[Rfam]
RNA: c-di-GMP-I riboswitch aptamer
RNA sequence: UCAUGAAAAAAGCACUCUUGGAGAAAUCCAUGAUUCGCAAAACUAUAGGGCCUGUAAAAUGGCAGCCAGUUACCAUG
Numbered sequence: 001u002c003a004u005g006a007a008a009a010a011a012g013c014a015c016u017c018u019u020g021g022a023g024a025a026a027u028c029c030a031u032g033a034u035u036c037g038c039a040a041a042a043c044u045a046u047a048g049g050g051c052c053u054g055u056a057a058a059a060u061g062g063c064a065g066c067c068a069g070u071u072a073c074c075a076u077g
Stems, first nucleotide, its partner, number of pairs: 012038002017032001019030004041071004048067002050063003